Rfam assigns this 600-nucleotide part of an RNA from Acidilobus saccharovorans to the family "Archaeal small subunit ribosomal RNA". Its Rfam clan is "SSU clan". The sequence is in the family's curated seed alignment. The family has 86 seed sequences and 709 matches in Rfam 15.1. On this family, see Yusupov et al., Science 2001: "Crystal structure of the ribosome at 5.5 A resolution". The family's consensus secondary structure is taken from published work.
RNA sequence: UGGCGGGGGGGCACACAAGGGGUGGAGCCUGCGGCUCAAUUGGAGUCAACGCCGGGAACCUCACCGGGGGCGACAGCAGGAUGACGGCCAGGCUAACGACCUUGCCCGACGCGCUGAGGGGAGGUGCAUGGCCGUCGCCAGCUCGUGCUGUGAAGUGUCCUGUUAAGUCAGGCAACGAGCGAGACCCCCGCCCCUAGUUGCGACCCGGCGGGAGACCGCUGGGGCACACUAGGGGGACUGCCGCCGCUAAGGCGGAGGAAGGAGGGGGCCACGGCAGGUCAGCAUGCCCCUAAACCCCCGGGCUGCACGCGGGCUACAAUGGCGGGGACAGCGGGAUCCGACCCCGAAAGGGGGAGGCAAUCCCUCAAACCCCGCCGUAGUCGGGAUUGGGGGCUGUAACUCGCCCCCAUGAACCUGGAAUCCCUAGUAACCGCGCGUCAACAUCGCGCGGUGAAUACGUCCCUGCCCCUUGUACACACUGCCCGUCGCUCCACCUGAGAGAAGGAGGGGUGAGGCUUCCUCCUUCGGGAGGGAGUCGAACCCCUCCUUCUCGAGGGGGGAGAAGUCGUAACAAGGUAGCCGUAGGGGAACCUGCGGCUG
Numbered sequence: 001u002g003g004c005g006g007g008g009g010g011g012c013a014c015a016c017a018a019g020g021g022g023u024g025g026a027g028c029c030u031g032c033g034g035c036u037c038a039a040u041u042g043g044a045g046u047c048a049a050c051g052c053c054g055g056g057a058a059c060c061u062c063a064c065c066g067g068g069g070g071c072g073a074c075a076g077c078a079g080g081a082u083g084a085c086g087g088c089c090a091g092g093c094u095a096a097c098g099a100c101c102u103u104g105c106c107c108g109a110c111g112c113g114c115u116g117a118g119g120g121g122a123g124g125u126g127c128a129u130g131g132c133c134g135u136c137g138c139c140a141g142c143u144c145g146u147g148c149u150g151u152g153a154a155g156u157g158u159c160c161u162g163u164u165a166a167g168u169c170a171g172g173c174a175a176c177g178a179g180c181g182a183g184a185c186c187c188c189c190g191c192c193c194c195u196a197g198u199u200g201c202g203a204c205c206c207g208g209c210g211g212g213a214g215a216c217c218g219c220u221g222g223g224g225c226a227c228a229c230u231a232g233g234g235g236g237a238c239u240g241c242c243g244c245c246g247c248u249a250a251g252g253c254g255g256a257g258g259a260a261g262g263a264g265g266g267g268g269c270c271a272c273g274g275c276a277g278g279u280c281a282g283c284a285u286g287c288c289c290c291u292a293a294a295c296c297c298c299c300g301g302g303c304u305g306c307a308c309g310c311g312g313g314c315u316a317c318a319a320u321g322g323c324g325g326g327g328a329c330a331g332c333g334g335g336a337u338c339c340g341a342c343c344c345c346g347a348a349a350g351g352g353g354g355a356g357g358c359a360a361u362c363c364c365u366c367a368a369a370c371c372c373c374g375c376c377g378u379a380g381u382c383g384g385g386a387u388u389g390g391g392g393g394c395u396g397u398a399a400c401u402c403g404c405c406c407c408c409a410u411g412a413a414c415c416u417g418g419a420a421u422c423c424c425u426a427g428u429a430a431c432c433g434c435g436c437g438u439c440a441a442c443a444u445c446g447c448g449c450g451g452u453g454a455a456u457a458c459g460u461c462c463c464u465g466c467c468c469c470u471u472g473u474a475c476a477c478a479c480u481g482c483c484c485g486u487c488g489c490u491c492c493a494c495c496u497g498a499g500a501g502a503a504g505g506a507g508g509g510g511u512g513a514g515g516c517u518u519c520c521u522c523c524u525u526c527g528g529g530a531g532g533g534a535g536u537c538g539a540a541c542c543c544c545u546c547c548u549u550c551u552c553g554a555g556g557g558g559g560g561a562g563a564a565g566u567c568g569u570a571a572c573a574a575g576g577u578a579g580c581c582g583u584a585g586g587g588g589a590a591c592c593u594g595c596g597g598c599u600g
Base pairs, nucleotide, nucleotide: 001476002475003473004472005471007470008469009468010467011466012465013464015460016459019424020423021422022421023420024317026315027314028313029312030311031310032309033308034306035305040055041054042053043052064301065300066299067298068297069296070295074116075115076114077113079110086106087105088104090102091101092100120290121289123288124287125286126285129284130283131279132278133277134275135274136273137272141180142179143178144177145176146175147156148155149154159172160171161170162169186267187266188265189264191235192234193233194232195231196230197229201224205222206221207220208219209218210217211216238258239257241255242254243253244252245251321376322375323374324373325372326371327370333364334363335362338357339356342353343352344351345350383414388409389408390407391406392405393404394403430452431451432450433449434448435447436446437445479575481572484568485567487565489562490561491560492559494557495556496555499552500551501550502549503548504547505546506545507544508543509542510541511540514537515536516535517534518533519532520531521530522529523528577600578599579598580597581596582595583594584593585592586591